[Rfam]
RNA sequence: GUCUCUUCUUCUGUCAUCCCAGUGCCCAGACACUGGGAUCCAGACAAUUUAAUUGCAAAUGAGUACAUCAAAUGGCAGUGUAAUAAAAACUGGAUUCCAGUGUCAAGCACUGGAAUGACACCAGAACGAACUA
Numbered sequence: 001g002u003c004u005c006u007u008c009u010u011c012u013g014u015c016a017u018c019c020c021a022g023u024g025c026c027c028a029g030a031c032a033c034u035g036g037g038a039u040c041c042a043g044a045c046a047a048u049u050u051a052a053u054u055g056c057a058a059a060u061g062a063g064u065a066c067a068u069c070a071a072a073u074g075g076c077a078g079u080g081u082a083a084u085a086a087a088a089a090c091u092g093g094a095u096u097c098c099a100g101u102g103u104c105a106a107g108c109a110c111u112g113g114a115a116u117g118a119c120a121c122c123a124g125a126a127c128g129a130a131c132u133a
Stems, first nucleotide, its partner, number of pairs: 011128001012120006019113007029104015